A member of the RNA family "Small nucleolar RNA SNORA1" from Cnephaeus nilssonii, 134 nucleotides long. About the family: ACA1 is a member of the H/ACA class of snoRNA that guide the sites of modification of uridines to pseudouridines. Gene Ontology terms of the family: nucleolus and RNA processing. It is annotated as an H/ACA-box small nucleolar RNA. Lineage of the source: Eukaryota > Metazoa > Vertebrata > Laurasiatheria > Cnephaeus. The family's consensus secondary structure was predicted with PFOLD.

RNA sequence: AGCCUCCUUCUUGAUGAGACUGGGCACCAUUGAUCAUGGUGUCCAGAGAUGGUUAAUGGGGCUAAACUGAGGCACAGGUACGCUUCCAUCACAGAAAAUGGAUCGCCGGGGUGACAGUGAGACCUGUAACAUUU
Numbered sequence: 001a002g003c004c005u006c007c008u009u010c011u012u013g014a015u016g017a018g019a020c021u022g023g024g025c026a027c028c029a030u031u032g033a034u035c036a037u038g039g040u041g042u043c044c045a046g047a048g049a050u051g052g053u054u055a056a057u058g059g060g061g062c063u064a065a066a067c068u069g070a071g072g073c074a075c076a077g078g079u080a081c082g083c084u085u086c087c088a089u090c091a092c093a094g095a096a097a098a099u100g101g102a103u104c105g106c107c108g109g110g111g112u113g114a115c116a117g118u119g120a121g122a123c124c125u126g127u128a129a130c131a132u133u134u
Stems, first nucleotide, its partner, number of pairs: 002062003006058001008056001021045007074127005087113004092108001